The record is a 263-nucleotide RNA from Macaca fascicularis, which matches "Mason-Pfizer monkey virus packaging signal" in Rfam.
The literature on the family includes a 2004 paper in Virus Res by Mustafa et al., "Mutational analysis of the predicted secondary RNA structure of the Mason-Pfizer monkey virus packaging signal".
It scores 169 bits against the family's covariance model.
From the family's description: This family represents a group of sequences that are related to the Mason-Pfizer monkey virus (MPMV) packaging signal. The packaging signal is located in the 5' UTR and is required for specific RNA encapsidation.
The source organism's lineage runs through Eukaryota, Metazoa, Deuterostomia, Tetrapoda and Macaca.
RNA sequence: UGGGGCGUGGGGCCUGGAACGAGGACUCCGUGGAAGGGACGCCAAAGGACGGUCGACCGCUAACGAAGACAAAAGGAGUCAAACUCUUCCAAUCACCGGAACCUGCCGAAUCGAAGGUAAGUGGCGACGUCCGAAAUGGGACAAGAAUUAAGCCAACAUCAAAUAUAUGUAGGACAAUUAAAAGAGGCUUUAAAGAUACGAGGAGUAAAGGUUAAAGGUAAUGAUUUGUUUAAAUUUUUGAUUUUGUAAAGACACUUGCCCUU
Numbered sequence: 001u002g003g004g005g006c007g008u009g010g011g012g013c014c015u016g017g018a019a020c021g022a023g024g025a026c027u028c029c030g031u032g033g034a035a036g037g038g039a040c041g042c043c044a045a046a047g048g049a050c051g052g053u054c055g056a057c058c059g060c061u062a063a064c065g066a067a068g069a070c071a072a073a074a075g076g077a078g079u080c081a082a083a084c085u086c087u088u089c090c091a092a093u094c095a096c097c098g099g100a101a102c103c104u105g106c107c108g109a110a111u112c113g114a115a116g117g118u119a120a121g122u123g124g125c126g127a128c129g130u131c132c133g134a135a136a137u138g139g140g141a142c143a144a145g146a147a148u149u150a151a152g153c154c155a156a157c158a159u160c161a162a163a164u165a166u167a168u169g170u171a172g173g174a175c176a177a178u179u180a181a182a183a184g185a186g187g188c189u190u191u192a193a194a195g196a197u198a199c200g201a202g203g204a205g206u207a208a209a210g211g212u213u214a215a216a217g218g219u220a221a222u223g224a225u226u227u228g229u230u231u232a233a234a235u236u237u238u239u240g241a242u243u244u245u246g247u248a249a250a251g252a253c254a255c256u257u258g259c260c261c262u263u
Stems, first nucleotide, its partner, number of pairs: 006023001007020002027039003083118003087115002093110001094108001098106001126142001130140004149192003152188003199240004204236003209227006248263002251260001253258001